TPP riboswitch aptamer (THI element): a 110-nucleotide sequence from Amycolatopsis rhizosphaerae.

RNA sequence: GGGGGUCCGCACGGGAGCCCGGGACACGGGCUGAGAGGGAGCUGACCACCGCUUCGACCGUGGAACCUGAUCCGGAUCAUGCCGGCGCAGGGAGCGUGAUUUCUGUGGCA
Numbered sequence: 001g002g003g004g005g006u007c008c009g010c011a012c013g014g015g016a017g018c019c020c021g022g023g024a025c026a027c028g029g030g031c032u033g034a035g036a037g038g039g040a041g042c043u044g045a046c047c048a049c050c051g052c053u054u055c056g057a058c059c060g061u062g063g064a065a066c067c068u069g070a071u072c073c074g075g076a077u078c079a080u081g082c083c084g085g086c087g088c089a090g091g092g093a094g095c096g097u098g099a100u101u102u103c104u105g106u107g108g109c110a
Base pairs, nucleotide, nucleotide: 006098008096009095010094011061012060013059014058017031018030019029020028021027038055039054040053041052042051066091067090068089069088072085073084074083075082